[Rfam]
RNA sequence: CGCGUGUCACCGCUUAAUCGGAUUGCUCGCAAGGGCAACCGAGCCGGGAACCCAAGUACAUCUGGGGUGAAUCCCAACGGAUCGCACUAGCGAAACCGAUGGGUAGGGCUGAUCUUCCCAGCCCGAACCCAUCAGCUAACUCGGCAUGCGGAUGAUCGGAAGAAUG
Numbered sequence: 001c002g003c004g005u006g007u008c009a010c011c012g013c014u015u016a017a018u019c020g021g022a023u024u025g026c027u028c029g030c031a032a033g034g035g036c037a038a039c040c041g042a043g044c045c046g047g048g049a050a051c052c053c054a055a056g057u058a059c060a061u062c063u064g065g066g067g068u069g070a071a072u073c074c075c076a077a078c079g080g081a082u083c084g085c086a087c088u089a090g091c092g093a094a095a096c097c098g099a100u101g102g103g104u105a106g107g108g109c110u111g112a113u114c115u116u117c118c119c120a121g122c123c124c125g126a127a128c129c130c131a132u133c134a135g136c137u138a139a140c141u142c143g144g145c146a147u148g149c150g151g152a153u154g155a156u157c158g159g160a161a162g163a164a165u166g
Stems, first nucleotide, its partner, number of pairs: 011150003018042003043145006053064002065130003073103004106124004
Notes:
This 166-nucleotide RNA from Antrihabitans cavernicola belongs to the Rfam family "c-di-AMP riboswitch aptamer (ydaO/yuaA leader)". It scores 68 bits against the family's covariance model. The pairing is the family consensus, mapped onto this sequence. The source organism's lineage runs through Bacteria, Bacillati, Actinomycetota, Nocardiaceae and Antrihabitans. About the family: This family represents a conserved RNA structure found upstream of the ydaO and yuaA genes in Bacillus subtilis and related genes in other bacteria.